RNA sequence: UGGUACCUGACGGGAACGAUCGUAUAGUACGAGAGGAACUACGAUUGGUCGCCACUGGUGUACCGGUUGUCCGAGAGGGCACGUGCCGGGCAGCCACGCGACACGGGGUAAGAGCUGAACGCAUCUAAGCUCGAAACCCACCCGGAAAAGAGGUACCGCCGAGGUCACUCGUAGAAGACGAGUUCGAUAGACUCGGGGUGUACGCGCCGAGGCAACGAGGCGUUUAGCCCGCGAGCACUAACAGACCGAG
Numbered sequence: 001u002g003g004u005a006c007c008u009g010a011c012g013g014g015a016a017c018g019a020u021c022g023u024a025u026a027g028u029a030c031g032a033g034a035g036g037a038a039c040u041a042c043g044a045u046u047g048g049u050c051g052c053c054a055c056u057g058g059u060g061u062a063c064c065g066g067u068u069g070u071c072c073g074a075g076a077g078g079g080c081a082c083g084u085g086c087c088g089g090g091c092a093g094c095c096a097c098g099c100g101a102c103a104c105g106g107g108g109u110a111a112g113a114g115c116u117g118a119a120c121g122c123a124u125c126u127a128a129g130c131u132c133g134a135a136a137c138c139c140a141c142c143c144g145g146a147a148a149a150g151a152g153g154u155a156c157c158g159c160c161g162a163g164g165u166c167a168c169u170c171g172u173a174g175a176a177g178a179c180g181a182g183u184u185c186g187a188u189a190g191a192c193u194c195g196g197g198g199u200g201u202a203c204g205c206g207c208c209g210a211g212g213c214a215a216c217g218a219g220g221c222g223u224u225u226a227g228c229c230c231g232c233g234a235g236c237a238c239u240a241a242c243a244g245a246c247c248g249a250g
Stems, first nucleotide, its partner, number of pairs: 001158008011144004017047008048102005056096003063089005068081005105139003112132005163247004167183005188240003192235004196230003204223005211216001
Dot-bracket structure: ((((((((..((((..((((((((...............))))))))(((((...(((....((((((((((....)))))...)))))....))).)))))..(((....(((((...........)))))....))).))))......))))))))....(((((((((.......)))))....(((.(((((((.....(((((..(....)..)))))....))).))))..)))...))))...
Rfam assigns this 250-nucleotide part of an RNA from Halococcus morrhuae to the family "Archaeal large subunit ribosomal RNA". The family's consensus secondary structure is taken from published work. For this family Rfam cites "Crystal structure of the ribosome at 5.5 A resolution" (Yusupov et al., Science, 2001). Taxonomically the source falls in Halococcus (Archaea, Methanobacteriati, Halobacteria, Halococcaceae).